FMN riboswitch aptamer (RFN element): a 138-nucleotide RNA from Egicoccus halophilus.
[Rfam]
RNA sequence: ACGCGUUCCCGGGGAGGGGUGGAAGUCCCUACCGGCGGUCACAGCCCGCGACCCCGCGUCCGGCCCUCGGGCCGGGCAACGGUUGACCCGGUGGAACUCCGGGGCCGACGGUCACAGUCCGGAUGAGAGGGAACGCGA
Numbered sequence: 001a002c003g004c005g006u007u008c009c010c011g012g013g014g015a016g017g018g019g020u021g022g023a024a025g026u027c028c029c030u031a032c033c034g035g036c037g038g039u040c041a042c043a044g045c046c047c048g049c050g051a052c053c054c055c056g057c058g059u060c061c062g063g064c065c066c067u068c069g070g071g072c073c074g075g076g077c078a079a080c081g082g083u084u085g086a087c088c089c090g091g092u093g094g095a096a097c098u099c100c101g102g103g104g105c106c107g108a109c110g111g112u113c114a115c116a117g118u119c120c121g122g123a124u125g126a127g128a129g130g131g132a133a134c135g136c137g138a
Stems, first nucleotide, its partner, number of pairs: 003136008017029003031118002033107002035049004044105002053082002087103005109121003

Taxonomically the source falls in Egicoccus (Bacteria, Actinomycetota, Nitriliruptoria, Egicoccaceae). From the family's description: The RFN element is a highly conserved domain that is found frequently in the 5'-untranslated regions of prokaryotic mRNAs that encode for flavin mononucleotide (FMN) biosynthesis and transport proteins. This element is a metabolite-dependent riboswitch that directly binds FMN in the absence of proteins. In Bacillus subtilis, the riboswitch most likely controls gene expression by causing premature transcription termination within the 5' untranslated region of the ribDEAHT operon and precluding access to the ribosome-binding site of ypaA mRNA.The FMN riboswitch structure, reported in present an FMN-bound six-stem junction, adopts a butterfly-like scaffold, stapled together by opposingly directed but nearly identically folded peripheral domains. The match comes from Rfam's covariance-model search (99 bits). Gene Ontology term of the family: FMN binding.